[Rfam]
RNA sequence: CUACGCACCUGGCAGGGGAGAUACCAUUAUCACAAAGGUGGUUUUCCCAGGGCGAGGCUCACCCAUUGCACCCUGGGUGUGUUGAUUCCUGUGAUUUUCCCAAAUGUGGGAAACUUGACUGCAUAAUUUGCUUC
Numbered sequence: 001c002u003a004c005g006c007a008c009c010u011g012g013c014a015g016g017g018g019a020g021a022u023a024c025c026a027u028u029a030u031c032a033c034a035a036a037g038g039u040g041g042u043u044u045u046c047c048c049a050g051g052g053c054g055a056g057g058c059u060c061a062c063c064c065a066u067u068g069c070a071c072c073c074u075g076g077g078u079g080u081g082u083u084g085a086u087u088c089c090u091g092u093g094a095u096u097u098u099c100c101c102a103a104a105u106g107u108g109g110g111a112a113a114c115u116u117g118a119c120u121g122c123a124u125a126a127u128u129u130g131c132u133u134c
Stems, first nucleotide, its partner, number of pairs: 012122004016048006023042005049090004054086001056083003060079005092117003095113003099109002